RNA sequence: GUGCCUGUAGCUCAGUUGGAUAGAGCGUUGCCCUCCGAAGGCAAAGGCCUCAGGUUCAAAUCCUGACAGGCACG
Numbered sequence: 001g002u003g004c005c006u007g008u009a010g011c012u013c014a015g016u017u018g019g020a021u022a023g024a025g026c027g028u029u030g031c032c033c034u035c036c037g038a039a040g041g042c043a044a045a046g047g048c049c050u051c052a053g054g055u056u057c058a059a060a061u062c063c064u065g066a067c068a069g070g071c072a073c074g
Stems, first nucleotide, its partner, number of pairs: 001073007010026004028044005050066005
RNA: tRNA